[Rfam]
This 76-nucleotide RNA from Alligator mississippiensis belongs to the Rfam family "Mammalian CPEB3 ribozyme". A search with the family's covariance model found it, with a score of 37 bits. The source organism's lineage runs through Eukaryota, Bilateria, Sarcopterygii, Sauria and Alligator. The base pairs follow the family's consensus structure, which is taken from published work.
RNA sequence: GUUGCACAUUUGAGGUCAUAGCAGAAGUGCUCGUGGCAUGGCCCUGUCAGCUUUGAAUGAAUCUCUGAAUUCUGCU
Numbered sequence: 001g002u003u004g005c006a007c008a009u010u011u012g013a014g015g016u017c018a019u020a021g022c023a024g025a026a027g028u029g030c031u032c033g034u035g036g037c038a039u040g041g042c043c044c045u046g047u048c049a050g051c052u053u054u055g056a057a058u059g060a061a062u063c064u065c066u067g068a069a070u071u072c073u074g075c076u
Stems, first nucleotide, its partner, number of pairs: 012044001014043004020076007027039003049064002052061003